[Rfam]
RNA sequence: GACACAAACUUGAAGUAGAGUGGGUUAGUAUGGUCAGCUGAUCCUAUUGACCUACCAUACUUCAAGUUUGGGCUC
Numbered sequence: 001g002a003c004a005c006a007a008a009c010u011u012g013a014a015g016u017a018g019a020g021u022g023g024g025u026u027a028g029u030a031u032g033g034u035c036a037g038c039u040g041a042u043c044c045u046a047u048u049g050a051c052c053u054a055c056c057a058u059a060c061u062u063c064a065a066g067u068u069u070g071g072g073c074u075c
Base pairs, nucleotide, nucleotide: 001074003072005070006069007068008067009066011064012063013062014061015060016059017058020055021054022053023052025050026049027048028047029046030045032043033042034041035040
RNA: mir-5928 microRNA precursor family